[Rfam]
RNA sequence: CUUUGUAUUCUUCCACAGCUUUCUUGAACUGCAUCCAUGAGAUCGAUCGAUCUUUGCAUGUGAGGCUGCAGUCACUCACACACACUCUCUCUCUAACUGGCUUGCGGUUCAAUAAAGCUGUGGGAAGAUACAGAUA
Numbered sequence: 001c002u003u004u005g006u007a008u009u010c011u012u013c014c015a016c017a018g019c020u021u022u023c024u025u026g027a028a029c030u031g032c033a034u035c036c037a038u039g040a041g042a043u044c045g046a047u048c049g050a051u052c053u054u055u056g057c058a059u060g061u062g063a064g065g066c067u068g069c070a071g072u073c074a075c076u077c078a079c080a081c082a083c084a085c086u087c088u089c090u091c092u093c094u095a096a097c098u099g100g101c102u103u104g105c106g107g108u109u110c111a112a113u114a115a116a117g118c119u120g121u122g123g124g125a126a127g128a129u130a131c132a133g134a135u136a
Base pairs, nucleotide, nucleotide: 003133004132005131006130007129013123014122015121017119018118019117020116021115022114024112025111026110027109029107030106031105032104033103
MIR396 microRNA precursor family: a 136-nucleotide RNA sequence from Prunus yedoensis.
The match comes from Rfam's covariance-model search (90 bits).
Rfam 15.1 lists 744 matches to the family in 207 species.
Gene Ontology terms of the family: miRNA-mediated post-transcriptional gene silencing and RISC complex.
Pairs were carried over by alignment from the consensus structure, which was predicted with WAR.